[Rfam]
RNA sequence: ACGCCCCCACGUCCGCUCUAGGGGUCACUGAUGGGCACUCGAUGCCCCGCCGCUCACCCCUGGGAAGGUCUGAGACGAGGCACGCCCGCCAGGGUGGCGGGAUGCCCUAGCAGGGCACCGUCCUAGCCGGGACGGGUGGAUGAACAGAAAAGGACCCUGGCCGGCGGGCGCCUAGGACGCGCUGGGGCGCCCUCUCAGUGGCGCCGGGCGCCGAGGCGAUGCCCGCCGGCUCUGGUUGGAAGCGUCUGCGUGCGGCCGCUGCGAGUGCGAUGAGCGGGGCGCCGGUCGGCGUAACUCAAUUCAGACUACCCUGGGGGCGU
Numbered sequence: 001a002c003g004c005c006c007c008c009a010c011g012u013c014c015g016c017u018c019u020a021g022g023g024g025u026c027a028c029u030g031a032u033g034g035g036c037a038c039u040c041g042a043u044g045c046c047c048c049g050c051c052g053c054u055c056a057c058c059c060c061u062g063g064g065a066a067g068g069u070c071u072g073a074g075a076c077g078a079g080g081c082a083c084g085c086c087c088g089c090c091a092g093g094g095u096g097g098c099g100g101g102a103u104g105c106c107c108u109a110g111c112a113g114g115g116c117a118c119c120g121u122c123c124u125a126g127c128c129g130g131g132a133c134g135g136g137u138g139g140a141u142g143a144a145c146a147g148a149a150a151a152g153g154a155c156c157c158u159g160g161c162c163g164g165c166g167g168g169c170g171c172c173u174a175g176g177a178c179g180c181g182c183u184g185g186g187g188c189g190c191c192c193u194c195u196c197a198g199u200g201g202c203g204c205c206g207g208g209c210g211c212c213g214a215g216g217c218g219a220u221g222c223c224c225g226c227c228g229g230c231u232c233u234g235g236u237u238g239g240a241a242g243c244g245u246c247u248g249c250g251u252g253c254g255g256c257c258g259c260u261g262c263g264a265g266u267g268c269g270a271u272g273a274g275c276g277g278g279g280c281g282c283c284g285g286u287c288g289g290c291g292u293a294a295c296u297c298a299a300u301u302c303a304g305a306c307u308a309c310c311c312u313g314g315g316g317g318c319g320u
Base pairs, nucleotide, nucleotide: 001320002319003318004317007314008313009312012278013277014276015275016274017273018272020061021060022059023058024057033047034046035045036044037043070304071303072302073301074300080253081252082251083250103117104116105115106114107113118135119134120133121132122131123130136249137248138247139246140245141244142243155235156234279292280291281290282289283288
A member of the RNA family "Nuclear RNase P" from Amphibalanus amphitrite, 320 nucleotides long. Rfam links the family to the GO terms ribonuclease P complex, ribonuclease P activity and tRNA processing. The family's consensus secondary structure is taken from published work.